[Rfam]
RNA sequence: AAAGUCCUGAGGUGCACGUUAUUUAACCUAUUCGUUUUGACCGAACAUAUUAACUAGGGGAGCUUGGAGUUUUCUAGUUACGUACAUGCCUCAAUCGGAAGCUGGCAUUUCCGCCGCCCGGAGGAAGUACAAAGGCCUGAAAUAGAGCACCCACCUGCUUUAAGCGGGUUCAAAACAAAGGCCGAGUGACGACACAAACGGGACUUUC
Numbered sequence: 001a002a003a004g005u006c007c008u009g010a011g012g013u014g015c016a017c018g019u020u021a022u023u024u025a026a027c028c029u030a031u032u033c034g035u036u037u038u039g040a041c042c043g044a045a046c047a048u049a050u051u052a053a054c055u056a057g058g059g060g061a062g063c064u065u066g067g068a069g070u071u072u073u074c075u076a077g078u079u080a081c082g083u084a085c086a087u088g089c090c091u092c093a094a095u096c097g098g099a100a101g102c103u104g105g106c107a108u109u110u111c112c113g114c115c116g117c118c119c120g121g122a123g124g125a126a127g128u129a130c131a132a133a134g135g136c137c138u139g140a141a142a143u144a145g146a147g148c149a150c151c152c153a154c155c156u157g158c159u160u161u162a163a164g165c166g167g168g169u170u171c172a173a174a175a176c177a178a179a180g181g182c183c184g185a186g187u188g189a190c191g192a193c194a195c196a197a198a199c200g201g202g203a204c205u206u207u208c
Stems, first nucleotide, its partner, number of pairs: 002206008012195003017191003034176007041168002058152003062148004067143001072141003077136002084128002089124004
This 208-nucleotide RNA from Schinkia azotoformans belongs to the Rfam family "6S / SsrS RNA". About the family: E. coli 6S RNA was the first non coding RNA to be sequenced, but its function was unknown until recently. It consists of 184 nucleotides that fold into an extended hairpin structure with a large single-stranded internal bulge. The 6S RNA specifically associates with RNA polymerase holoenzyme containing the sigma70 specificity factor.